SAM riboswitch aptamer (S box leader): a 106-nucleotide sequence from Brevibacillus sp. SYP-B805.
RNA sequence: UUCUUAUCGCGAGAGGUGGAGGGACUGGCCCGAUGAAGCCCGGCAACCGUCAAAGAGAUUGACAAGGUGCCAAUUCCUGCAGGAUGCAUGUCCUGAGAGAUAAGAG
Numbered sequence: 001u002u003c004u005u006a007u008c009g010c011g012a013g014a015g016g017u018g019g020a021g022g023g024a025c026u027g028g029c030c031c032g033a034u035g036a037a038g039c040c041c042g043g044c045a046a047c048c049g050u051c052a053a054a055g056a057g058a059u060u061g062a063c064a065a066g067g068u069g070c071c072a073a074u075u076c077c078u079g080c081a082g083g084a085u086g087c088a089u090g091u092c093c094u095g096a097g098a099g100a101u102a103a104g105a106g
Stems, first nucleotide, its partner, number of pairs: 001106008013041001015040003021031003025079001027077002042071004047067002049063004075098001080095006